A member of the RNA family "MIR5272 microRNA precursor family" from Medicago truncatula, 73 nucleotides long.
[Rfam]
RNA sequence: UUUGACGUGAAUUGGUUAUGUUUAGAUACACUCGUUUAAAAGUGAUUCUUAUGAGUUGAUGUUGUUUGGAUAA
Numbered sequence: 001u002u003u004g005a006c007g008u009g010a011a012u013u014g015g016u017u018a019u020g021u022u023u024a025g026a027u028a029c030a031c032u033c034g035u036u037u038a039a040a041a042g043u044g045a046u047u048c049u050u051a052u053g054a055g056u057u058g059a060u061g062u063u064g065u066u067u068g069g070a071u072a073a
Stems, first nucleotide, its partner, number of pairs: 011060007020052002025047003029044004

NCBI's taxonomy places the organism under Eukaryota, Viridiplantae, Streptophyta, fabids, Medicago.